[Rfam]
RNA sequence: GGCUUAGGUGAUGAAUUAGAAGAAGUCAUCGUUGAGAAAACGAAACAGACGGUGGCCUCAAUCUCAUCUGGUCCAAAACACACACA
Numbered sequence: 001g002g003c004u005u006a007g008g009u010g011a012u013g014a015a016u017u018a019g020a021a022g023a024a025g026u027c028a029u030c031g032u033u034g035a036g037a038a039a040a041c042g043a044a045a046c047a048g049a050c051g052g053u054g055g056c057c058u059c060a061a062u063c064u065c066a067u068c069u070g071g072u073c074c075a076a077a078a079c080a081c082a083c084a085c086a
Base pairs, nucleotide, nucleotide: 001074002073004071005070006069007068008067009066010065011064022059023058025056026055027054028053029052030051031050032049033048
Dot-bracket structure: ((.((((((((..........((.(((((((((..............))))))))).))....)))))))).))............

Rfam assigns this 86-nucleotide sequence from Enterovirus betarhino to the family "Human rhinovirus internal cis-acting regulatory element (CRE)". This family represents a cis-acting regulatory element (CRE) from the human rhinoviruses. The CRE is located within the genome segment encoding the capsid proteins so is found in a protein coding region. The family has been found to be essential for efficient viral replication and it has been suggested that the CRE is required for initiation of minus-strand RNA synthesis. By type it is a cis-regulatory element. A reference for the family is McKnight and Lemon (1998), "The rhinovirus type 14 genome contains an internally located RNA structure that is required for viral replication", RNA.